[Rfam]
RNA sequence: GGGAUAUGAUGAGUGGUAAAUGCUUGCACUUAAUAUGCAAGAGGGGUGUCCGCCCCAGCCUGGUUACGACUAUGAGGCACUCUCUUUUUGACCUAUCUGAUCCC
Numbered sequence: 001g002g003g004a005u006a007u008g009a010u011g012a013g014u015g016g017u018a019a020a021u022g023c024u025u026g027c028a029c030u031u032a033a034u035a036u037g038c039a040a041g042a043g044g045g046g047u048g049u050c051c052g053c054c055c056c057a058g059c060c061u062g063g064u065u066a067c068g069a070c071u072a073u074g075a076g077g078c079a080c081u082c083u084c085u086u087u088u089u090g091a092c093c094u095a096u097c098u099g100a101u102c103c104c
Base pairs, nucleotide, nucleotide: 001104002103003102004101014095015094016093023041024040025039026038027037043083044082045081046080047079048078049077050076061075063073064072